The family of this 67-nucleotide RNA from Bombyx mori is "mir-2774 microRNA precursor family". Gene Ontology terms of the family: miRNA-mediated post-transcriptional gene silencing and RISC complex. It scores 60 bits against the family's covariance model. Lineage of the source: Eukaryota > Opisthokonta > Endopterygota > Bombycinae > Bombyx. Pairs were carried over by alignment from the consensus structure, which was predicted with RNAalifold.
[Rfam]
RNA sequence: AUAGCAUUUAGACUCUCGGUCUACCGUGCAAUUUCACCCGCUCGGUGGAAGAUCUUCCCUUUCUCAU
Numbered sequence: 001a002u003a004g005c006a007u008u009u010a011g012a013c014u015c016u017c018g019g020u021c022u023a024c025c026g027u028g029c030a031a032u033u034u035c036a037c038c039c040g041c042u043c044g045g046u047g048g049a050a051g052a053u054c055u056u057c058c059c060u061u062u063c064u065c066a067u
Base pairs, nucleotide, nucleotide: 004064006062011057012056016052017051020049021048022047023046024045025044026043028041029040